[Rfam]
A member of the RNA family "TPP riboswitch aptamer (THI element)" from Kineothrix alysoides, 111 nucleotides long. The family's consensus secondary structure is taken from published work. Taxonomically the source falls in Kineothrix (Bacteria, Bacillati, Bacillota, Clostridia).
RNA sequence: AUAAAUCGCUAGGGGAGCAAUAGCUGAGACUGAAUUGGCCUGUAAGACGGAUUCUAACCCUCAUAACCUGAACCGGGUAAUACCGGCGUAGGAAAGCACUUUUUUUGUAAA
Numbered sequence: 001a002u003a004a005a006u007c008g009c010u011a012g013g014g015g016a017g018c019a020a021u022a023g024c025u026g027a028g029a030c031u032g033a034a035u036u037g038g039c040c041u042g043u044a045a046g047a048c049g050g051a052u053u054c055u056a057a058c059c060c061u062c063a064u065a066a067c068c069u070g071a072a073c074c075g076g077g078u079a080a081u082a083c084c085g086g087c088g089u090a091g092g093a094a095a096g097c098a099c100u101u102u103u104u105u106u107g108u109a110a111a
Base pairs, nucleotide, nucleotide: 008097009096010095011061012060013059014058016055017024018023032054033053034052035051067092068091069090070089073086074085075084076083